[Rfam]
RNA sequence: CUGAAUGAUGAUCUCAAUUUAUGGAAUCUCGUUCGGCUGAAAAUUCUGUUGAGACUUUGUAUCUGACCAGU
Dot-bracket structure: ..........................(((((..(((.........))).))))).................
Numbered sequence: 001c002u003g004a005a006u007g008a009u010g011a012u013c014u015c016a017a018u019u020u021a022u023g024g025a026a027u028c029u030c031g032u033u034c035g036g037c038u039g040a041a042a043a044u045u046c047u048g049u050u051g052a053g054a055c056u057u058u059g060u061a062u063c064u065g066a067c068c069a070g071u
Stems, first nucleotide, its partner, number of pairs: 027054005034048003